[Rfam]
RNA sequence: CCGCCCGUCGCUAUCUCCGAUUGAGCGGUGGAGUGAGGUCUUCGGACCAGCGCUCGGGCGACCUCUCCGGGGUCGAGUCGACGUGCCGGGAAGAUGACCGAACUUGGCCGCUUAGAGGAGGUAAAAGUCGUAACAAGGUUUCCGUAGGUGAACCUGUGGAAGGAUCAUUG
Numbered sequence: 001c002c003g004c005c006c007g008u009c010g011c012u013a014u015c016u017c018c019g020a021u022u023g024a025g026c027g028g029u030g031g032a033g034u035g036a037g038g039u040c041u042u043c044g045g046a047c048c049a050g051c052g053c054u055c056g057g058g059c060g061a062c063c064u065c066u067c068c069g070g071g072g073u074c075g076a077g078u079c080g081a082c083g084u085g086c087c088g089g090g091a092a093g094a095u096g097a098c099c100g101a102a103c104u105u106g107g108c109c110g111c112u113u114a115g116a117g118g119a120g121g122u123a124a125a126a127g128u129c130g131u132a133a134c135a136a137g138g139u140u141u142c143c144g145u146a147g148g149u150g151a152a153c154c155u156g157u158g159g160a161a162g163g164a165u166c167a168u169u170g
Base pairs, nucleotide, nucleotide: 001137003134006130007129009127012123013122014121015120016119017118018117021114023113024112025111026110027109028108029107031105032104033103034102037099038098039097040096042094043093047089048088050086051085052084054081055080056079057078059075060074061073062072063071064070139162140161141160142159143158144157145156146155147154148153

A member of the RNA family "Eukaryotic small subunit ribosomal RNA" from Trichonephila clavata, 170 nucleotides of a longer RNA.
Its family is annotated with structural constituent of ribosome and ribosome in the Gene Ontology.
Rfam 15.1 lists 75,755 matches to the family in 2,556 species.
Its Rfam clan is "SSU clan".
The match comes from Rfam's covariance-model search (1493 bits).